About this RNA
This 149-nucleotide sequence from Salmonella enterica belongs to the Rfam family "sok antitoxin (CssrC)". Rfam links the family to the GO term mRNA binding. Rfam 15.1 lists 305 matches to the family in 167 species. Also identified in Shigella as CssrC.

[Rfam]
RNA sequence: GGGUGCUUGAGGCUGUCUGCCUUAAGCGCUUGCUGACAGGUAGAUAGAUAAAAGCCCCACCCGACUAUAAAUCGAAGUGAGGCCCCUAUAUGCUCGUCACAUAUAGAUUGCCUCUUACGGACCGAAAGGUCAAGGAGAAGCAGGCUAUG
Numbered sequence: 001g002g003g004u005g006c007u008u009g010a011g012g013c014u015g016u017c018u019g020c021c022u023u024a025a026g027c028g029c030u031u032g033c034u035g036a037c038a039g040g041u042a043g044a045u046a047g048a049u050a051a052a053a054g055c056c057c058c059a060c061c062c063g064a065c066u067a068u069a070a071a072u073c074g075a076a077g078u079g080a081g082g083c084c085c086c087u088a089u090a091u092g093c094u095c096g097u098c099a100c101a102u103a104u105a106g107a108u109u110g111c112c113u114c115u116u117a118c119g120g121a122c123c124g125a126a127a128g129g130u131c132a133a134g135g136a137g138a139a140g141c142a143g144g145c146u147a148u149g
Stems, first nucleotide, its partner, number of pairs: 001058003005055004011049001013047010026034001059078002063073002066070001079114005086106007118140001123135001